Small nucleolar RNA snoR109: a 102-nucleotide RNA from Amborella trichopoda. The source organism's lineage runs through Eukaryota, Streptophyta, Spermatophyta, Magnoliopsida and Amborella. Pairs were carried over by alignment from the consensus structure, which was predicted with WAR. The family has 6 seed sequences and 680 matches in Rfam 15.1. On this family, see Marker et al., Curr Biol 2002: "Experimental RNomics: identification of 140 candidates for small non-messenger RNAs in the plant Arabidopsis thaliana". It scores 47 bits against the family's covariance model. Gene Ontology terms of the family: nucleolus and RNA processing. It is annotated as an H/ACA-box small nucleolar RNA.
[Rfam]
RNA sequence: UGGCUGUAGCCAUAACAAAAGCAGUCUUUCUCUUCAGGAGCUAUAACUGGCCGGGUGUUAGUUUGAUAUCAUUGACAACUGCUUACCGAGCUUCUGACAGUA
Numbered sequence: 001u002g003g004c005u006g007u008a009g010c011c012a013u014a015a016c017a018a019a020a021g022c023a024g025u026c027u028u029u030c031u032c033u034u035c036a037g038g039a040g041c042u043a044u045a046a047c048u049g050g051c052c053g054g055g056u057g058u059u060a061g062u063u064u065g066a067u068a069u070c071a072u073u074g075a076c077a078a079c080u081g082c083u084u085a086c087c088g089a090g091c092u093u094c095u096g097a098c099a100g101u102a
Stems, first nucleotide, its partner, number of pairs: 035096008049083003053079001056078001057076004